The record is a 74-nucleotide sequence from Lachnospiraceae bacterium A10, which matches "c-di-GMP-I riboswitch aptamer" in Rfam. Pairs were carried over by alignment from the consensus structure, which is taken from published work.
[Rfam]
RNA sequence: UAACUUAAAAGGCAAACUUAUCGAAAGGUAAGGACGCAAAGCUAUAGGGCCUCAAAUGGCAGCCAGUUGCAUUC
Numbered sequence: 001u002a003a004c005u006u007a008a009a010a011g012g013c014a015a016a017c018u019u020a021u022c023g024a025a026a027g028g029u030a031a032g033g034a035c036g037c038a039a040a041g042c043u044a045u046a047g048g049g050c051c052u053c054a055a056a057u058g059g060c061a062g063c064c065a066g067u068u069g070c071a072u073u074c
Stems, first nucleotide, its partner, number of pairs: 012037002017032006040068004047064002049060003

Rfam links the family to the GO term cyclic-di-GMP binding. A search with the family's covariance model found it, with a score of 66 bits.